[Rfam]
RNA sequence: GUUGGCGGGUUGCUGUCUGUCUGCCUGUCUGUGCCUGCUGUACAGGCUUCCGGAUGUUCUGCACAGCAAGUGUAGACAGGCAGACACGCAACAACUGCAAC
Numbered sequence: 001g002u003u004g005g006c007g008g009g010u011u012g013c014u015g016u017c018u019g020u021c022u023g024c025c026u027g028u029c030u031g032u033g034c035c036u037g038c039u040g041u042a043c044a045g046g047c048u049u050c051c052g053g054a055u056g057u058u059c060u061g062c063a064c065a066g067c068a069a070g071u072g073u074a075g076a077c078a079g080g081c082a083g084a085c086a087c088g089c090a091a092c093a094a095c096u097g098c099a100a101c
Stems, first nucleotide, its partner, number of pairs: 018086002022082009034070001036068006043061003
RNA: mir-214 microRNA precursor family